Nucleotides: 072
Base pairs, nucleotide, nucleotide: 001072002071003070004069011024012023013022014021026060027059028058029056030055033054034053035052039047040046
Number, partner (000 for none) and nucleotide at each position: 001072c002071c003070g004069g005000g006000a007000g008000a009000c010000g011024c012023c013022g014021c015000c016000g017000c018000a019000a020000g021014g022013c023012g024011g025000g026060g027059c028058c029056g030055a031000a032000g033054g034053a035052g036000c037000a038000a039047c040046c041000g042000c043000c044000c045000c046040g047039g048000u049000a050000a051000a052035c053034u054033c055030u056029c057000a058028g059027g060026c061000a062000c063000c064000c065000a066000g067000g068000a069004c070003c071002g072001g
Glycine riboswitch aptamer: a 72-nucleotide RNA sequence from Jannaschia seohaensis. The organism belongs to Jannaschia, within Bacteria. It scores 44 bits against the family's covariance model. This family represents the bacterial glycine riboswitch.